[Rfam]
RNA sequence: CUUCCCAUUUAUUUGCUGCUGUAGUCUGUCAGUGACAUGAGCGGUUAUACGCGUGGGAUACAGUAGUGUUGGGCCAUUGUACACUGAGAUGAAGUGGCUACGUCAUCUCUUCUGCAUGGUCUGGACAUGU
Numbered sequence: 001c002u003u004c005c006c007a008u009u010u011a012u013u014u015g016c017u018g019c020u021g022u023a024g025u026c027u028g029u030c031a032g033u034g035a036c037a038u039g040a041g042c043g044g045u046u047a048u049a050c051g052c053g054u055g056g057g058a059u060a061c062a063g064u065a066g067u068g069u070u071g072g073g074c075c076a077u078u079g080u081a082c083a084c085u086g087a088g089a090u091g092a093a094g095u096g097g098c099u100a101c102g103u104c105a106u107c108u109c110u111u112c113u114g115c116a117u118g119g120u121c122u123g124g125a126c127a128u129g130u
Stems, first nucleotide, its partner, number of pairs: 003058006015045006022037001025035002069124008078116004086109007094101002
The family of this 130-nucleotide RNA sequence from Cavia porcellus is "Small nucleolar RNA SNORA20". It is annotated as an H/ACA-box small nucleolar RNA. Rfam 15.1 lists 437 matches to the family in 157 species. ACA20 is a member of the H/ACA class of snoRNA that guide the sites of modification of uridines to pseudouridines. Lineage of the source: Eukaryota > Deuterostomia > Amniota > Euarchontoglires > Cavia.